[Rfam]
The record is a 178-nucleotide RNA from Mycoplana azooxidifex, which matches "Rhizobiales sRNA Atu_C9" in Rfam. For this family Rfam cites "Deep sequencing uncovers numerous small RNAs on all four replicons of the plant pathogen Agrobacterium tumefaciens" (Wilms et al., RNA Biol, 2012). Rfam classes the family as a small RNA.
RNA sequence: CCGCAACGCAAGGGAGGUAAGCCGAUGGGUAUCACACAUUCCUUGAAUGUUCUGAUGAUCAGUGCCGCGUUCCUCUUCGUCGCCAGCAUGAUUUUCAUGUGACGGCAGCGUAGUCCACAAGGACCAAAACGCAGAGACUAGUUUAAGAAAACGCAUGGCCCACAGUGCCAUGCGUUUU
Numbered sequence: 001c002c003g004c005a006a007c008g009c010a011a012g013g014g015a016g017g018u019a020a021g022c023c024g025a026u027g028g029g030u031a032u033c034a035c036a037c038a039u040u041c042c043u044u045g046a047a048u049g050u051u052c053u054g055a056u057g058a059u060c061a062g063u064g065c066c067g068c069g070u071u072c073c074u075c076u077u078c079g080u081c082g083c084c085a086g087c088a089u090g091a092u093u094u095u096c097a098u099g100u101g102a103c104g105g106c107a108g109c110g111u112a113g114u115c116c117a118c119a120a121g122g123a124c125c126a127a128a129a130c131g132c133a134g135a136g137a138c139u140a141g142u143u144u145a146a147g148a149a150a151a152c153g154c155a156u157g158g159c160c161c162a163c164a165g166u167g168c169c170a171u172g173c174g175u176u177u178u
Stems, first nucleotide, its partner, number of pairs: 016051004027043003148178012160165001
Dot-bracket structure: ...............((((.......(((...........)))....))))................................................................................................(((((((((((((....).))))))))))))